Shown here is a 387-nucleotide sequence from Pseudomonas sp. OIL-1, a member of the family "Pseudomonas sRNA CrcZ".
NCBI's taxonomy places the organism under Bacteria, Pseudomonadati, Pseudomonadota, Pseudomonadaceae, Pseudomonas.
The literature on the family includes a 2006 paper in Nucleic Acids Res by Livny et al., "Identification of 17 Pseudomonas aeruginosa sRNAs and prediction of sRNA-encoding genes in 10 diverse pathogens using the bioinformatic tool sRNAPredict2".
RNA sequence: ACAACAACAAUAAAAACCAAGACACAUAACAAAAACAACAUUUGCUCUCACCACAACAAAAACAAAACGUGCGGGCGUAGCAAACUGAUUUUUUUGGAGAGUGGGAACUCUUUUAGCGAACAGGACGUUCGAUUGGAUUCGAGAAUAAUAAAAGUUGCCCAAGCAACCUACCGUUCCAAUGCCGAAGAGGCCUGAGUCGCACACCUAAGCUUCCAAAGCAAUCCGUUUGUUUUUGGACAACCCGGGAUGGGUAAACCAUAAGGCGACCUUGUCGCCUGUGCCUAAAAACAACAACAGCUCGAAUCGAACAAUAAUAAAAAAACCACCAUUAGGGGGAGUACCUACUCCCCUUGAGCUUUAUUUCCCUUCCUUACAAUUCCCCCUGCU
Numbered sequence: 001a002c003a004a005c006a007a008c009a010a011u012a013a014a015a016a017c018c019a020a021g022a023c024a025c026a027u028a029a030c031a032a033a034a035a036c037a038a039c040a041u042u043u044g045c046u047c048u049c050a051c052c053a054c055a056a057c058a059a060a061a062a063c064a065a066a067a068c069g070u071g072c073g074g075g076c077g078u079a080g081c082a083a084a085c086u087g088a089u090u091u092u093u094u095u096g097g098a099g100a101g102u103g104g105g106a107a108c109u110c111u112u113u114u115a116g117c118g119a120a121c122a123g124g125a126c127g128u129u130c131g132a133u134u135g136g137a138u139u140c141g142a143g144a145a146u147a148a149u150a151a152a153a154g155u156u157g158c159c160c161a162a163g164c165a166a167c168c169u170a171c172c173g174u175u176c177c178a179a180u181g182c183c184g185a186a187g188a189g190g191c192c193u194g195a196g197u198c199g200c201a202c203a204c205c206u207a208a209g210c211u212u213c214c215a216a217a218g219c220a221a222u223c224c225g226u227u228u229g230u231u232u233u234u235g236g237a238c239a240a241c242c243c244g245g246g247a248u249g250g251g252u253a254a255a256c257c258a259u260a261a262g263g264c265g266a267c268c269u270u271g272u273c274g275c276c277u278g279u280g281c282c283u284a285a286a287a288a289c290a291a292c293a294a295c296a297g298c299u300c301g302a303a304u305c306g307a308a309c310a311a312u313a314a315u316a317a318a319a320a321a322a323c324c325a326c327c328a329u330u331a332g333g334g335g336g337a338g339u340a341c342c343u344a345c346u347c348c349c350c351u352u353g354a355g356c357u358u359u360a361u362u363u364c365c366c367u368u369c370c371u372u373a374c375a376a377u378u379c380c381c382c383c384u385g386c387u
Base pairs, nucleotide, nucleotide: 043077044076046074047073049071092218093217094216095215096214106211108209130184131183132180133179134178135177136176154167155166156165157164158163240252241251242250243249271369274366277301278300280298320359321358322357332351333350334349335348336347337346338345339344

Description: Rfam links the family to the GO term carbon catabolite repression of transcription.